Shown here is an 84-nucleotide RNA sequence from Arenimonas composti, a member of the family "Xanthomonadaceae sRNA Xoo5". Taxonomically the source falls in Arenimonas composti (Bacteria, Pseudomonadota, Gammaproteobacteria, Lysobacteraceae). The base pairs follow the family's consensus structure, which was predicted with RNAalifold.
[Rfam]
RNA sequence: CUCCGCCUGGAUGGCGGCGGGCAUGACCUCGCGCGCGCGCCGACCGGAAGCCCACAUCCACGCUGGGUAACCGGACGCGUCCUG
Numbered sequence: 001c002u003c004c005g006c007c008u009g010g011a012u013g014g015c016g017g018c019g020g021g022c023a024u025g026a027c028c029u030c031g032c033g034c035g036c037g038c039g040c041c042g043a044c045c046g047g048a049a050g051c052c053c054a055c056a057u058c059c060a061c062g063c064u065g066g067g068u069a070a071c072c073g074g075a076c077g078c079g080u081c082c083u084g
Stems, first nucleotide, its partner, number of pairs: 001084001004079003007074002009045002012042004021036002024033002046072002051067004055062001